[Rfam]
RNA sequence: CAACAGCGAAGCGCGCCAGGGAAACACACCAUGUGUGGUAUAUUAUCUGGCA
Dot-bracket structure: ..............(((((.......(((.....))).........))))).
Annotation:
Rfam assigns this 52-nucleotide RNA from Chicory yellow mottle virus satellite RNA to the family "Hairpin ribozyme". Lineage of the source: Viruses > RNA satellites > Single stranded RNA satellites. For this family Rfam cites "Structure-mapping of the hairpin ribozyme. Magnesium-dependent folding and evidence for tertiary interactions within the ribozyme-substrate complex" (Butcher and Burke, J Mol Biol, 1994).